[Rfam]
RNA sequence: AAAUUGAAGAGAAUGCUUUCUCAUAUAUGCUUGGGAAUAUGGCCUAAGCGUCUCUACCUGGAUACCUUAAAUCUCCGGACUAUGGGAAACUCGUUCAGCACG
Dot-bracket structure: .................((((((((...(((((((.......)))))))........(((((.(.......).)))))..))))))))..............
RNA: Purine riboswitch aptamer
Organism: Marininema mesophilum